[Rfam]
Background: tRNA: a 73-nucleotide RNA from Malacoplasma penetrans. It is annotated as a transfer RNA.
RNA sequence: GCUUUGUUAGCUCAGUCGGUAGAGCAAGUGACUCUUAAUCACUGGGUCGGGGGUUCGAACCCCUCACAAAGCA
Numbered sequence: 001g002c003u004u005u006g007u008u009a010g011c012u013c014a015g016u017c018g019g020u021a022g023a024g025c026a027a028g029u030g031a032c033u034c035u036u037a038a039u040c041a042c043u044g045g046g047u048c049g050g051g052g053g054u055u056c057g058a059a060c061c062c063c064u065c066a067c068a069a070a071g072c073a
Stems, first nucleotide, its partner, number of pairs: 001072007010025004027043005049065005

The family has 954 seed sequences and 5,335,975 matches in Rfam 15.1. Taxonomically the source falls in Malacoplasma penetrans (Bacteria, Mycoplasmatota, Mycoplasmoidaceae, Malacoplasma).